[Rfam]
RNA sequence: CACAAUUUGAUUUUAACACACACACGUAUCGUCACAUACACUUGGGUGCAUUUGAAGUUUAAAUACUUCGAUGUUGGUGCUAUGGGAUAUGUGGAGGCCUAAC
Numbered sequence: 001c002a003c004a005a006u007u008u009g010a011u012u013u014u015a016a017c018a019c020a021c022a023c024a025c026g027u028a029u030c031g032u033c034a035c036a037u038a039c040a041c042u043u044g045g046g047u048g049c050a051u052u053u054g055a056a057g058u059u060u061a062a063a064u065a066c067u068u069c070g071a072u073g074u075u076g077g078u079g080c081u082a083u084g085g086g087a088u089a090u091g092u093g094g095a096g097g098c099c100u101a102a103c
Base pairs, nucleotide, nucleotide: 023093024092025091026090027089028088029087030086035084036083037082038081040078041077042076048074049073050072051071052070

t44 RNA: a 103-nucleotide RNA from Pseudoalteromonas sp. BSi20652. The organism belongs to Pseudoalteromonas, within Bacteria. From the family's description: This family consists of a number of bacterial RNA genes of between 135 and 170 bases in length. By type it is a small RNA.